[Rfam]
RNA: Mycobacterium smegmatis small RNA 1
Organism: Mycolicibacterium grossiae
RNA sequence: ACGGACGCGAGGAGAGGCCAAGGCCGAGCCGGAAGAGAAGGCUCGAUCUCCCGAACCGAGCGGCCCAGCACGGAUACGGGCACCCACGCGGAGCACAUGCCGCGAUAGAGGCAGAAGCGUUGCGGGCCUGCGGAAUUGCGAACAGCGGACGGACGUGCGACCUCUUGGGCGGGGUCGUCGCCGGGGCGCAGCGCAAGAACGCCGAGGCCGACCCACGCAACCCAUACAGCACGCUUGGUAACCGGUAUCCGUGCUAGCGGGCGGCGAGCCGAGACACAUCACCCGAUGUGCAUCGGAUCGUCGCCCGCUUCGAUUU
Numbered sequence: 001a002c003g004g005a006c007g008c009g010a011g012g013a014g015a016g017g018c019c020a021a022g023g024c025c026g027a028g029c030c031g032g033a034a035g036a037g038a039a040g041g042c043u044c045g046a047u048c049u050c051c052c053g054a055a056c057c058g059a060g061c062g063g064c065c066c067a068g069c070a071c072g073g074a075u076a077c078g079g080g081c082a083c084c085c086a087c088g089c090g091g092a093g094c095a096c097a098u099g100c101c102g103c104g105a106u107a108g109a110g111g112c113a114g115a116a117g118c119g120u121u122g123c124g125g126g127c128c129u130g131c132g133g134a135a136u137u138g139c140g141a142a143c144a145g146c147g148g149a150c151g152g153a154c155g156u157g158c159g160a161c162c163u164c165u166u167g168g169g170c171g172g173g174g175u176c177g178u179c180g181c182c183g184g185g186g187c188g189c190a191g192c193g194c195a196a197g198a199a200c201g202c203c204g205a206g207g208c209c210g211a212c213c214c215a216c217g218c219a220a221c222c223c224a225u226a227c228a229g230c231a232c233g234c235u236u237g238g239u240a241a242c243c244g245g246u247a248u249c250c251g252u253g254c255u256a257g258c259g260g261g262c263g264g265c266g267a268g269c270c271g272a273g274a275c276a277c278a279u280c281a282c283c284c285g286a287u288g289u290g291c292a293u294c295g296g297a298u299c300g301u302c303g304c305c306c307g308c309u310u311c312g313a314u315u316u
Stems, first nucleotide, its partner, number of pairs: 003065002006062003011057002016052002021049002025045006067255008077245001079243002084238003088234003093230002098113004119221006125209005130202003136196005145189003150183003154180002158177007257308011269296003